[Rfam]
RNA sequence: UUUAUAUCUUUAGCAGUGACUAAAAUAUAAG
Numbered sequence: 001u002u003u004a005u006a007u008c009u010u011u012a013g014c015a016g017u018g019a020c021u022a023a024a025a026u027a028u029a030a031g
Stems, first nucleotide, its partner, number of pairs: 001031007009024005014018001

This 31-nucleotide RNA sequence from Xenopus tropicalis belongs to the Rfam family "Iron response element II". The family's RNA type in Rfam is cis-regulatory element. Its family is annotated with response to iron ion in the Gene Ontology. About the family: IRE, TFRC, SLC40A1, SDHB, SLC11A2, CDC42BPA, ACO2, ALAS2_H.SAPIENS, CDC14A, EPAS1, ALAS2, qoxD, Hao1, NDUFS1, transferrin, Aconitate. It scores 34 bits against the family's covariance model.